[Rfam]
RNA sequence: CCUUUUAACAAAGGGGAGUAGCGUUAGGGUUUACCCUAAAACAAAGUCGUCAUUUCGUGGAUGAACGUCCACCGGCUUUGUUGGCACAUACACUGUGCUC
Dot-bracket structure: ........................(((........))).((((((((((.......(((((......)))))))))))))))((((((.....)))))).